The record is a 156-nucleotide sequence from Amedibacillus dolichus, which matches "Group II catalytic intron D1-D4-3" in Rfam. The organism belongs to Amedibacillus dolichus, within Bacteria. The sequence is in the family's curated seed alignment.

[Rfam]
RNA sequence: UCUAUCAUGAGGUGGAAUCUUAAAGGAAGCCGGUGGCAAAAUCUUGAAUCUAUGGACAAGAACUGGUCAAAAUGCACAUAAGGUAGGAUAAGGUUUCCAAACAAAUCAAAGUCUUAUGUGUAAAAUCAGAGGUUAUAUGAGAGGAAAGUUACUGCA
Dot-bracket structure: ((((((....))))))..............(((..((....((((((((((...........(((((......(((.(.....((((((..((((........))))...))))))).)))...))))))))))...))))).....))..)))..
Numbered sequence: 001u002c003u004a005u006c007a008u009g010a011g012g013u014g015g016a017a018u019c020u021u022a023a024a025g026g027a028a029g030c031c032g033g034u035g036g037c038a039a040a041a042u043c044u045u046g047a048a049u050c051u052a053u054g055g056a057c058a059a060g061a062a063c064u065g066g067u068c069a070a071a072a073u074g075c076a077c078a079u080a081a082g083g084u085a086g087g088a089u090a091a092g093g094u095u096u097c098c099a100a101a102c103a104a105a106u107c108a109a110a111g112u113c114u115u116a117u118g119u120g121u122a123a124a125a126u127c128a129g130a131g132g133u134u135a136u137a138u139g140a141g142a143g144g145a146a147a148g149u150u151a152c153u154g155c156a
Stems, first nucleotide, its partner, number of pairs: 001016006031154003036149002042142005047134005063129005074121003078117001084116006092107004